Background:
Rfam assigns this 99-nucleotide sequence from Vicugna pacos to the family "Small nucleolar RNA SNORD90".
RNA sequence: AACCUUGAUUUUAGUCUAAUGAUGAAUUUCAUAGGGCAGAUUCUGGGAUGAAAAUUUAACUCAUCACUAAUAUUCCUAGUAUUGGCACCACAGGAGCCU
Numbered sequence: 001a002a003c004c005u006u007g008a009u010u011u012u013a014g015u016c017u018a019a020u021g022a023u024g025a026a027u028u029u030c031a032u033a034g035g036g037c038a039g040a041u042u043c044u045g046g047g048a049u050g051a052a053a054a055u056u057u058a059a060c061u062c063a064u065c066a067c068u069a070a071u072a073u074u075c076c077u078a079g080u081a082u083u084g085g086c087a088c089c090a091c092a093g094g095a096g097c098c099u
Stems, first nucleotide, its partner, number of pairs: 013099002015095003027087001029085002031082002033077004039071001042070001045067001047065005

Rfam links the family to the GO terms RNA processing and nucleolus. The family's consensus secondary structure was predicted with RNAalifold. By type it is a C/D-box small nucleolar RNA. It scores 50 bits against the family's covariance model. Rfam describes the family as follows. snoRNA HBII-295 belongs to the family of C/D snoRNAs. It is the human orthologue of the mouse MBII-295 and has no identified RNA target.